Annotation: Rfam assigns this 89-nucleotide RNA sequence from Cucurbita maxima to the family "MIR397 microRNA precursor family". The family has 7 seed sequences and 496 matches in Rfam 15.1. Its family is annotated with miRNA-mediated post-transcriptional gene silencing and RISC complex in the Gene Ontology.

[Rfam]
RNA sequence: GAAAGAUACGUCAUUGAGUGCAGCGUUGAUGUAAUGACACCAAUUAUAACUCCAUGUUUCCAUCAGCGCUACAUUCAAUCACGUUUCUU
Numbered sequence: 001g002a003a004a005g006a007u008a009c010g011u012c013a014u015u016g017a018g019u020g021c022a023g024c025g026u027u028g029a030u031g032u033a034a035u036g037a038c039a040c041c042a043a044u045u046a047u048a049a050c051u052c053c054a055u056g057u058u059u060c061c062a063u064c065a066g067c068g069c070u071a072c073a074u075u076c077a078a079u080c081a082c083g084u085u086u087c088u089u
Stems, first nucleotide, its partner, number of pairs: 006086001008084004013079008022070007030062002

The organism belongs to Cucurbita, within Eukaryota. The match comes from Rfam's covariance-model search (66 bits).